Description
The record is an 84-nucleotide RNA sequence from Pseudomonas jinjuensis, which matches "gyrA RNA" in Rfam. By type it is a cis-regulatory element. It scores 50 bits against the family's covariance model. Pairs were carried over by alignment from the consensus structure, which is taken from published work.
RNA sequence: UUGUGAGUUGGUGGCGUUCUAGUGGCGCCAUCUCACUCCGCUUGGCCCAGGACGGGCAAGGCGGAGUUCCACCAGUAAAAGGAA
Numbered sequence: 001u002u003g004u005g006a007g008u009u010g011g012u013g014g015c016g017u018u019c020u021a022g023u024g025g026c027g028c029c030a031u032c033u034c035a036c037u038c039c040g041c042u043u044g045g046c047c048c049a050g051g052a053c054g055g056g057c058a059a060g061g062c063g064g065a066g067u068u069c070c071a072c073c074a075g076u077a078a079a080a081g082g083a084a
Stems, first nucleotide, its partner, number of pairs: 007032001009030005015024001035067009045057004
Dot-bracket structure: ......(.(((((.(........).))))).)..(((((((((.((((.....)))).))))))))).................